[Rfam]
RNA: SAM riboswitch aptamer (S box leader)
Organism: Virgibacillus salarius
RNA sequence: UACCUAUCGAGAGUCAGGGGAGGAAACUGGUCCAUUGAUCCUGCGGCAACCAUACUCAUUCAAAAAGAGUAAUACGGUGCUAAAUCCAGCAAACGAAAGUUGUUUGAAAGAUGGGAA
Numbered sequence: 001u002a003c004c005u006a007u008c009g010a011g012a013g014u015c016a017g018g019g020g021a022g023g024a025a026a027c028u029g030g031u032c033c034a035u036u037g038a039u040c041c042u043g044c045g046g047c048a049a050c051c052a053u054a055c056u057c058a059u060u061c062a063a064a065a066a067g068a069g070u071a072a073u074a075c076g077g078u079g080c081u082a083a084a085u086c087c088a089g090c091a092a093a094c095g096a097a098a099g100u101u102g103u104u105u106g107a108a109a110g111a112u113g114g115g116a117a
Stems, first nucleotide, its partner, number of pairs: 001117001003115006013044001015043004022033003027089004045081004050077002052073002085109001090106006